[Rfam]
Shown here is a 164-nucleotide sequence from Crotophaga sulcirostris, a member of the family "Small Cajal body specific RNA 1". Taxonomically the source falls in Crotophaga (Eukaryota, Chordata, Amniota, Sauria). A search with the family's covariance model found it, with a score of 117 bits. It is annotated as a small Cajal body RNA. The literature on the family includes a 2002 paper in EMBO J by Darzacq et al., "Cajal body-specific small nuclear RNAs: a novel class of 2'-O-methylation and pseudouridylation guide RNAs". Rfam links the family to the GO terms Cajal body, nucleolus and RNA processing. scaRNAs are a specific class of small nuclear RNAs which localise to the Cajal bodies and guide the modification of RNA polymerase II transcribed spliceosomal RNAs U1, U2, U4, U5 and U12.
Nucleotides: 164
Stems, first nucleotide, its partner, number of pairs: 003088006016077003020073003024069003028061003033056001034054001036052006102158003122137002125134001127132001139154006
Number, partner (000 for none) and nucleotide at each position: 001000a002000a003088g004087c005086a006085c007084u008083u009000g010000a011000u012000a013000c014000u015000a016077a017076c018075c019000g020073a021072g022071c023000c024069a025068u026067c027000c028061g029060u030059g031000u032000c033056u034054c035000c036052g037051g038050c039049c040048u041047c042000g043000c044000g045000c046000a047041g048040a049039g050038g051037u052036c053000u054034g055000g056033g057000u058000g059030c060029a061028c062000c063000u064000u065000g066000u067026g068025a069024u070000u071022g072021c073020u074000g075018g076017g077016u078000c079000u080000g081000a082000a083008a084007a085006g086005u087004g088003c089000g090000a091000c092000a093000g094000u095000a096000a097000c098000a099000c100000a101000a102158g103157c104156c105000a106000u107000g108000a109000g110000c111000u112000g113000u114000u115000a116000a117000g118000c119000u120000c121000c122137g123136u124000g125134u126000a127132u128000g129000a130000a131000g132127g133000a134125a135000a136123a137122c138000a139154c140153u141152g142151g143150g144149u145000u146000a147000u148000a149144a150143c151142u152141c153140a154139g155000a156104g157103g158102c159000a160000c161000a162000a163000a164000a